[Rfam]
RNA: Bacterial large subunit ribosomal RNA, nucleotides 574 to 801
Organism: Marinobacter gudaonensis
RNA sequence: GACUUAUGUUCAGUGGCGAGGUUAACCGUUUAGGGGAGCCGUAGGGAAACCGAGUCUGAAUAGGGCGAUUUAGUCGCUGGGCAUAGACCCGAAACCGGGCGAUCUAUCCAUGAGCAGGUUGAAGGUGCCGUAACAGGCACUGGAGGACCGAACCCACUGUCGUUGAAAAGCCAGGGGAUGACUUGUGGAUCGGAGUGAAAGGCUAAUCAAGCCCGGAGAUAGCUGGUU
Numbered sequence: 001g002a003c004u005u006a007u008g009u010u011c012a013g014u015g016g017c018g019a020g021g022u023u024a025a026c027c028g029u030u031u032a033g034g035g036g037a038g039c040c041g042u043a044g045g046g047a048a049a050c051c052g053a054g055u056c057u058g059a060a061u062a063g064g065g066c067g068a069u070u071u072a073g074u075c076g077c078u079g080g081g082c083a084u085a086g087a088c089c090c091g092a093a094a095c096c097g098g099g100c101g102a103u104c105u106a107u108c109c110a111u112g113a114g115c116a117g118g119u120u121g122a123a124g125g126u127g128c129c130g131u132a133a134c135a136g137g138c139a140c141u142g143g144a145g146g147a148c149c150g151a152a153c154c155c156a157c158u159g160u161c162g163u164u165g166a167a168a169a170g171c172c173a174g175g176g177g178a179u180g181a182c183u184u185g186u187g188g189a190u191c192g193g194a195g196u197g198a199a200a201g202g203c204u205a206a207u208c209a210a211g212c213c214c215g216g217a218g219a220u221a222g223c224u225g226g227u228u
Base pairs, nucleotide, nucleotide: 005085006084007083008082009081010080011079012078013077014076015075016074017073020040021039022038023037026034027033044051045050054066055065056064057063088226089225091223095216096215097214098213099212100211104192106190107189108188109187110186111185112184113183114182115180117149118148119147120146124141125140126139127138128137129136153177154176155175157174158173159172161170194204195203196202